[Rfam]
RNA sequence: AAGUAACAGCUCUUUUAGAAUUUGUCUAGCAGGUUUUCUGGUUUUUACUGAAAAAUCUUU
Numbered sequence: 001a002a003g004u005a006a007c008a009g010c011u012c013u014u015u016u017a018g019a020a021u022u023u024g025u026c027u028a029g030c031a032g033g034u035u036u037u038c039u040g041g042u043u044u045u046u047a048c049u050g051a052a053a054a055a056u057c058u059u060u
Base pairs, nucleotide, nucleotide: 032057033056034055035054036053037052039050040049041048042047

Shown here is a 60-nucleotide RNA sequence from Callithrix jacchus, a member of the family "U7 small nuclear RNA". It scores 56 bits against the family's covariance model. The family's consensus secondary structure was predicted with PFOLD. Animal histone pre-mRNAs are spliced by a different mechanism than nuclear pre-mRNAs and self-splicing introns. This processing involves the U7 snRNP, which contains only one RNA species: U7. The source organism's lineage runs through Eukaryota, Deuterostomia, Chordata, Simiiformes and Callithrix.